[Rfam]
RNA sequence: UCGCGGCUCGCAGGAGAGAGAGGCUUCGAGUCUCCGCCGAAGGCGCAAACUCCCAUAAUCGCUCAGGCAGACGUACUGCGAAUCUUAC
Numbered sequence: 001u002c003g004c005g006g007c008u009c010g011c012a013g014g015a016g017a018g019a020g021a022g023g024c025u026u027c028g029a030g031u032c033u034c035c036g037c038c039g040a041a042g043g044c045g046c047a048a049a050c051u052c053c054c055a056u057a058a059u060c061g062c063u064c065a066g067g068c069a070g071a072c073g074u075a076c077u078g079c080g081a082a083u084c085u086u087a088c
Stems, first nucleotide, its partner, number of pairs: 006083001008081006020034004036068003039064002043062003049056001
RNA: Glycine riboswitch aptamer
Organism: Pseudomonas sp. OIL-1